RNA sequence: AAACGCGCAAUAACUUUCCUCUUGUUUUAUAAAGAGGGCGUUAUUGCUCCUUUUUUU
Numbered sequence: 001a002a003a004c005g006c007g008c009a010a011u012a013a014c015u016u017u018c019c020u021c022u023u024g025u026u027u028u029a030u031a032a033a034g035a036g037g038g039c040g041u042u043a044u045u046g047c048u049c050c051u052u053u054u055u056u057u
Stems, first nucleotide, its partner, number of pairs: 001053003005049001007047008019036005
RNA: Plastid-psbA-3 3UTR RNA